[Rfam]
RNA sequence: UAGCGGCCGUUGAGAUGAUAUCGCUCCAUACCCGGUAGCGGCAGCUUGACUCCGCACACGCGUAGGGGGCAAUGUCACCUCAACAGCUGCUC
Numbered sequence: 001u002a003g004c005g006g007c008c009g010u011u012g013a014g015a016u017g018a019u020a021u022c023g024c025u026c027c028a029u030a031c032c033c034g035g036u037a038g039c040g041g042c043a044g045c046u047u048g049a050c051u052c053c054g055c056a057c058a059c060g061c062g063u064a065g066g067g068g069g070c071a072a073u074g075u076c077a078c079c080u081c082a083a084c085a086g087c088u089g090c091u092c
Base pairs, nucleotide, nucleotide: 002091003090005088006087007086009084010083011082012081013080014079016077017076018075019074020073021072024069025068026067027066029064030063031062038055039054040053041052043051044050
RNA: MIR9772 microRNA precursor family